RNA: MIR1120/MIR1122 microRNA precursor family
Organism: Aegilops tauschii
Nucleotides: 087
Base pairs, nucleotide, nucleotide: 003085004084005083007081008080009079010078011077013075014074015073016072017071019069020068021067022066023065024064025063026062027061028060029059030058031057032056033055034054035053037051038050039049040048041047
Number, partner (000 for none) and nucleotide at each position: 001000u002000c003085a004084c005083u006000c007081c008080c009079u010078u011077c012000g013075u014074c015073c016072c017071a018000u019069a020068a021067u022066a023065u024064a025063a026062g027061a028060g029059c030058g031057u032056u033055u034054u035053u036000u037051g038050c039049a040048c041047u042000a043000g044000u045000c046000u047041a048040g049039u050038g051037u052000c053035a054034a055033a056032a057031a058030c059029g060028c061027u062026c063025u064024u065023g066022u067021a068020u069019u070000a071017u072016g073015g074014g075013a076000c077011g078010g079009a080008g081007g082000g083005a084004g085003u086000a087000c